[Rfam]
RNA: Glycine riboswitch aptamer
Organism: Bacillus salacetis
RNA sequence: AUGAAAGCAAGAGGAGAGACUGUUGGAUGACAGCGCCGAAGGAGCAAGCAAAUUCUUGUGAAUCUCUCAGGCAAAAAGACUCUUGCCGGACG
Numbered sequence: 001a002u003g004a005a006a007g008c009a010a011g012a013g014g015a016g017a018g019a020c021u022g023u024u025g026g027a028u029g030a031c032a033g034c035g036c037c038g039a040a041g042g043a044g045c046a047a048g049c050a051a052a053u054u055c056u057u058g059u060g061a062a063u064c065u066c067u068c069a070g071g072c073a074a075a076a077a078g079a080c081u082c083u084u085g086c087c088g089g090a091c092g
Stems, first nucleotide, its partner, number of pairs: 007086007020033004035072003038068002042066003048059002